[Rfam]
RNA sequence: AUGACACUUCAAUUGAAUACUCGUAUAUCUUCGGGAAUAUGGCCCGAAAGUCUCUACCCGGUUACCGUAAAUAACCGGACUACGAGUUGAAAGCGAAUCUAG
Numbered sequence: 001a002u003g004a005c006a007c008u009u010c011a012a013u014u015g016a017a018u019a020c021u022c023g024u025a026u027a028u029c030u031u032c033g034g035g036a037a038u039a040u041g042g043c044c045c046g047a048a049a050g051u052c053u054c055u056a057c058c059c060g061g062u063u064a065c066c067g068u069a070a071a072u073a074a075c076c077g078g079a080c081u082a083c084g085a086g087u088u089g090a091a092a093g094c095g096a097a098u099c100u101a102g
Stems, first nucleotide, its partner, number of pairs: 019087007030048006058078007
Rfam assigns this 102-nucleotide RNA from Effusibacillus lacus to the family "Purine riboswitch aptamer". A search with the family's covariance model found it, with a score of 89 bits. Pairs were carried over by alignment from the consensus structure, which is taken from published work. Rfam describes the family as follows. Riboswitches are metabolite binding domains within certain messenger RNAs that serve as precision sensors for their corresponding targets. Allosteric rearrangement of mRNA structure is mediated by ligand binding, and this results in modulation of gene expression. Rfam links the family to the GO term purine nucleobase biosynthetic process. NCBI's taxonomy places the organism under Bacteria, Bacillati, Caryophanales, Alicyclobacillaceae, Effusibacillus.